[Rfam]
A member of the RNA family "Bacterial small signal recognition particle RNA" from Slackia heliotrinireducens, 96 nucleotides long.
RNA sequence: UGAAUGGGCUGGGGCGGCGCCAAGUUCUGAACCUGGUCAGGUCCGGGAGGAAGCAGCCAUAAGGAACCGCUGACGAGCGCCCCUGCCUAUUUAGGG
Numbered sequence: 001u002g003a004a005u006g007g008g009c010u011g012g013g014g015c016g017g018c019g020c021c022a023a024g025u026u027c028u029g030a031a032c033c034u035g036g037u038c039a040g041g042u043c044c045g046g047g048a049g050g051a052a053g054c055a056g057c058c059a060u061a062a063g064g065a066a067c068c069g070c071u072g073a074c075g076a077g078c079g080c081c082c083c084u085g086c087c088u089a090u091u092u093a094g095g096g
Stems, first nucleotide, its partner, number of pairs: 004090006011083004015077001018075002021072002024067005034059004042051003
It is annotated as a non-coding RNA gene.
It scores 59 bits against the family's covariance model.
Rfam describes the family as follows. The signal recognition particle (SRP) is a universally conserved ribonucleoprotein involved in the co-translational targeting of proteins to membranes.
The family's consensus secondary structure is taken from published work.